[Rfam]
RNA sequence: CAAAUAUCUGAUACAGUGAUGUCGAUAUUUG
Numbered sequence: 001c002a003a004a005u006a007u008c009u010g011a012u013a014c015a016g017u018g019a020u021g022u023c024g025a026u027a028u029u030u031g
Stems, first nucleotide, its partner, number of pairs: 001031007009024005014018001
Dot-bracket structure: (((((((.((((((...).))))))))))))
Iron response element II: a 31-nucleotide RNA from Salix koriyanagi. For this family Rfam cites "Identification of a novel iron-responsive element in murine and human erythroid delta-aminolevulinic acid synthase mRNA" (Dandekar et al., EMBO J, 1991). It scores 32 bits against the family's covariance model. The base pairs follow the family's consensus structure, which is taken from published work. Lineage of the source: Eukaryota > Mesangiospermae > Gunneridae > fabids > Salix. Rfam describes the family as follows. IRE, TFRC, SLC40A1, SDHB, SLC11A2, CDC42BPA, ACO2, ALAS2_H.SAPIENS, CDC14A, EPAS1, ALAS2, qoxD, Hao1, NDUFS1, transferrin, Aconitate.